[Rfam]
RNA sequence: GGGCAAGAUAUGUGGAGAUGGCCAUCUCCACGCAAACUUUAUUCGCACAUAACUGUGCUCAACGUUGAUCUUGCUCUACGAGGUA
Numbered sequence: 001g002g003g004c005a006a007g008a009u010a011u012g013u014g015g016a017g018a019u020g021g022c023c024a025u026c027u028c029c030a031c032g033c034a035a036a037c038u039u040u041a042u043u044c045g046c047a048c049a050u051a052a053c054u055g056u057g058c059u060c061a062a063c064g065u066u067g068a069u070c071u072u073g074c075u076c077u078a079c080g081a082g083g084u085a
Stems, first nucleotide, its partner, number of pairs: 001076009012031006019024001035066003045058005
traJ-II RNA: an 85-nucleotide RNA from Nitrosomonas aestuarii. A search with the family's covariance model found it, with a score of 66 bits. The source organism's lineage runs through Bacteria, Pseudomonadota, Betaproteobacteria, Nitrosomonadaceae and Nitrosomonas.